[Rfam]
RNA sequence: CCGCUCCCUCCCCGCCGGAUCUCCCAGUGAGGAGGCUAGGGCCGCUGGAUCCGGUGACCCUAUUCUCCUCGCCGGCGGAUCCUGCACCCUAGAGAGGAACGAG
Dot-bracket structure: ....(.((((.(.((.((((((.((.(((((((((.(((((.(((((....))))).))))).))))))))).)).)))))).))......).)))).)....
Shown here is a 103-nucleotide RNA from Oryza glumipatula, a member of the family "MIR1846 microRNA precursor family".
A search with the family's covariance model found it, with a score of 78 bits.
The base pairs follow the family's consensus structure, which was predicted with RNAalifold.
For this family Rfam cites "A diverse set of microRNAs and microRNA-like small RNAs in developing rice grains" (Zhu et al., Genome Res, 2008).